[Rfam]
RNA: transfer-messenger RNA
Organism: Clostridium sp. chh4-2
RNA sequence: GGGGUAGUACUGGUUUCGACAGGGGCCAUGCAGCUGGUGAAGCUAUCCGCAUGCGAUGCGUUAAAUGGCAAAAUAAAUAUAAACGCUGAAGACAAUUUAGCAAUCGCUGCCUAAUGGCAGCUGUCAGACUUAGUGCACUCACACAUUAAGACCCUGGCAUCGACUUUGUGAGAAACGACUUGUGCAAAGCUUUGAGCACCUGGGCGUAUGAUGAAGCUACUGAAACCUCAAGGAUGUUCGUUUCCGUGAGGCAGAGGGAAUGUUAAACAACGGACUAUGAUAGUAGAAGAACAGGGAAUUGGUUUUUGGACACGGGUUCAAAUCCCGUCUACUCCAUGA
Numbered sequence: 001g002g003g004g005u006a007g008u009a010c011u012g013g014u015u016u017c018g019a020c021a022g023g024g025g026c027c028a029u030g031c032a033g034c035u036g037g038u039g040a041a042g043c044u045a046u047c048c049g050c051a052u053g054c055g056a057u058g059c060g061u062u063a064a065a066u067g068g069c070a071a072a073a074u075a076a077a078u079a080u081a082a083a084c085g086c087u088g089a090a091g092a093c094a095a096u097u098u099a100g101c102a103a104u105c106g107c108u109g110c111c112u113a114a115u116g117g118c119a120g121c122u123g124u125c126a127g128a129c130u131u132a133g134u135g136c137a138c139u140c141a142c143a144c145a146u147u148a149a150g151a152c153c154c155u156g157g158c159a160u161c162g163a164c165u166u167u168g169u170g171a172g173a174a175a176c177g178a179c180u181u182g183u184g185c186a187a188a189g190c191u192u193u194g195a196g197c198a199c200c201u202g203g204g205c206g207u208a209u210g211a212u213g214a215a216g217c218u219a220c221u222g223a224a225a226c227c228u229c230a231a232g233g234a235u236g237u238u239c240g241u242u243u244c245c246g247u248g249a250g251g252c253a254g255a256g257g258g259a260a261u262g263u264u265a266a267a268c269a270a271c272g273g274a275c276u277a278u279g280a281u282a283g284u285a286g287a288a289g290a291a292c293a294g295g296g297a298a299u300u301g302g303u304u305u306u307u308g309g310a311c312a313c314g315g316g317u318u319c320a321a322a323u324c325c326c327g328u329c330u331a332c333u334c335c336a337u338g339a
Base pairs, nucleotide, nucleotide: 001335002334003333004332005331006330007329020308021307022306023305024304025303026302027301028300034294035293036292038290043283044282045281046280047279048060049059050058051057052056106121107120108119109118110117122159123158124157125156126155127154129150130149131148132147133146134145135144138172139171140170141169142168143167175207176206177205179203180202182200188218189217190216191215192214193213220257221256226251227250228249229248232245233244234243236275237274238273239272241269312328313327314326315325316324